A member of the RNA family "TPP riboswitch aptamer (THI element)" from Hirschia baltica, 130 nucleotides long.
[Rfam]
RNA sequence: AGCCAUUCCGAGGGGCGCGUAUGGUUAAGCGCUGAGAUGGGGACAAUACCUCCCUAGCACCCUUUGAACCUGAUCUGGAAAGCGGGCAAUAACGCCCUCAACCAGCGUAGGAACGGAGCGAAACGGGUGA
Numbered sequence: 001a002g003c004c005a006u007u008c009c010g011a012g013g014g015g016c017g018c019g020u021a022u023g024g025u026u027a028a029g030c031g032c033u034g035a036g037a038u039g040g041g042g043a044c045a046a047u048a049c050c051u052c053c054c055u056a057g058c059a060c061c062c063u064u065u066g067a068a069c070c071u072g073a074u075c076u077g078g079a080a081a082g083c084g085g086g087c088a089a090u091a092a093c094g095c096c097c098u099c100a101a102c103c104a105g106c107g108u109a110g111g112a113a114c115g116g117a118g119c120g121a122a123a124c125g126g127g128u129g130a
Stems, first nucleotide, its partner, number of pairs: 006118005011063004016057001017032004040055003069111004075105004
It scores 54 bits against the family's covariance model. The source organism's lineage runs through Bacteria, Pseudomonadota, Hyphomonadales, Hirschia and Hirschia baltica. Vitamin B(1) in its active form thiamin pyrophosphate (TPP) is an essential coenzyme that is synthesised by coupling of pyrimidine and thiazole moieties in bacteria. The previously detected thiamin-regulatory element, thi box was extended, resulting in a new, highly conserved RNA secondary structure, the THI element, which is widely distributed in eubacteria and also occurs in some archaea. Analysis of operon structures identified a large number of new candidate thiamin-regulated genes, mostly transporters, in various prokaryotic organisms. The THI element is a riboswitch that directly binds to TPP to regulate gene expression through a variety of mechanisms in archaea, bacteria and eukaryotes. through a variety of mechanisms in archaea, bacteria and eukaryotes. Tandem TPP riboswitches have been reported where both TPP riboswitches respond independently to TPP. The structure of TPP riboswitch has been reported for Escherichia coli and Arabidopsis thaliana.